[Rfam]
RNA sequence: GAAUCACGGUUGAAACAAGAUUUGUCAUGAGAAGUCAGCAGAAGCCAUAGUACCUGACGCAGUCGAUGCGCCAGGAAAGGGC
Numbered sequence: 001g002a003a004u005c006a007c008g009g010u011u012g013a014a015a016c017a018a019g020a021u022u023u024g025u026c027a028u029g030a031g032a033a034g035u036c037a038g039c040a041g042a043a044g045c046c047a048u049a050g051u052a053c054c055u056g057a058c059g060c061a062g063u064c065g066a067u068g069c070g071c072c073a074g075g076a077a078a079g080g081g082c
Stems, first nucleotide, its partner, number of pairs: 001022002004020002008016001010014001035042002044082003053075004058070001
RNA: Group II catalytic intron D1-D4-1